Nucleotides: 246
Stems, first nucleotide, its partner, number of pairs: 010245003017238002020235001023231002026229003030224002034220002039183002042180001043178006050170001052167006060089002063086003068080004093160006106146001111140006118134007185217003189213004194208004
Number, partner (000 for none) and nucleotide at each position: 001000g002000u003000g004000a005000g006000g007000u008000g009000a010245u011244g012243a013000c014000a015000a016000a017238g018237u019000u020235u021000a022000u023231c024230c025000a026229u027228u028227c029000u030224c031223u032000g033000a034220g035219u036000g037000c038000a039183g040182u041000g042180g043178u044177g045176c046175u047174g048173u049000c050170c051000u052167c053166c054165u055164g056163c057162a058000g059000c060089a061088c062000c063086c064085u065084g066000a067000u068080u069079c070078c071077u072000g073000u074000u075000c076000u077071a078070g079069g080068g081000u082000c083000u084065u085064g086063g087000u088061g089060u090000u091000g092000u093160g094159c095158a096157g097156c098155c099000u100000c101000c102000a103000g104000a105000g106146a107000g108000c109000c110000u111140g112139c113138a114137g115136u116135c117000u118134c119133c120132c121131a122130g123129u124128g125000u126000c127000c128124u129123a130122c131121u132120g133119g134118g135116g136115a137114c138113u139112g140111c141000c142000g143000u144000g145000g146106u147000g148000u149000g150000u151000g152000g153000c154000u155098g156097g157096c158095u159094g160093c161000c162057u163056g164055c165054a166053g167052g168000c169000g170050g171000a172000a173048g174047u175046g176045g177044u178043g179000c180042c181000g182040g183039c184000a185217g186216g187215g188000u189213u190212g191211g192210a193000g194208c195207c196206c197205c198000u199000c200000u201000c202000u203000g204000g205197g206196g207195g208194g209000c210192u211191c212190u213189g214000u215187c216186c217185c218000c219035a220034c221000u222000g223031a224030g225000a226000u227028g228027a229026g230024g231023g232000a233000u234000g235020a236000u237018g238017u239000c240000u241000g242000a243012u244011c245010a246000u